Shown here is a 164-nucleotide sequence from Paenibacillus uliginis, a member of the family "c-di-AMP riboswitch aptamer (ydaO/yuaA leader)". A search with the family's covariance model found it, with a score of 92 bits. Rfam links the family to the GO terms cyclic-di-AMP binding and regulation of gene expression. Taxonomically the source falls in Paenibacillus uliginis (Bacteria, Bacilli, Caryophanales, Paenibacillus).
Nucleotides: 164
Stems, first nucleotide, its partner, number of pairs: 011148004018031003032143006042068002069128003077104004107122004
Number, partner (000 for none) and nucleotide at each position: 001000a002000u003000a004000a005000u006000c007000u008000a009000c010000a011148c012147g013146c014145u015000g016000a017000g018031u019030u020029c021000c022000c023000g024000a025000a026000a027000g028000g029020g030019a031018g032143g033142c034141g035140g036139g037138g038000g039000a040000a041000c042068c043067a044000a045000c046000c047000u048000c049000a050000c051000c052000a053000u054000a055000a056000c057000u058000a059000a060000u061000g062000g063000u064000g065000a066000a067043u068042g069128g070127g071126g072000u073000g074000a075000a076000u077104c078103c079102u080101u081000a082000g083000a084000g085000c086000u087000u088000g089000c090000u091000g092000c093000g094000c095000a096000a097000g098000c099000a100000c101080a102079g103078g104077g105000u106000a107122g108121g109120g110119c111000a112000c113000u114000c115000u116000c117000a118000a119110g120109c121108c122107c123000g124000a125000a126071u127070c128069c129000g130000a131000c132000a133000g134000c135000u136000a137000a138037c139036c140035u141034c142033g143032u144000a145014a146013g147012c148011g149000u150000a151000u152000u153000g154000g155000g156000a157000g158000a159000g160000a161000a162000c163000a164000c